The record is a 78-nucleotide RNA from Callipepla squamata, which matches "Small nucleolar RNA SNORD74" in Rfam. On this family, see Galardi et al., Mol Cell Biol 2002: "Purified box C/D snoRNPs are able to reproduce site-specific 2'-O-methylation of target RNA in vitro". The match comes from Rfam's covariance-model search (73 bits). Rfam classes the family as a C/D-box small nucleolar RNA. The source organism's lineage runs through Eukaryota, Teleostomi, Amniota, Coelurosauria and Callipepla. The family is grouped with related families in Rfam's "SNORD74 clan".
RNA sequence: CGUGCCCGCGCGUGAUGAAAGCUAUGUUGGUAGGGACAUCUGAGAGGCUGAUGAGUGCCAACAUAUCUGAGCUGCGCG
Numbered sequence: 001c002g003u004g005c006c007c008g009c010g011c012g013u014g015a016u017g018a019a020a021g022c023u024a025u026g027u028u029g030g031u032a033g034g035g036a037c038a039u040c041u042g043a044g045a046g047g048c049u050g051a052u053g054a055g056u057g058c059c060a061a062c063a064u065a066u067c068u069g070a071g072c073u074g075c076g077c078g
Stems, first nucleotide, its partner, number of pairs: 001078005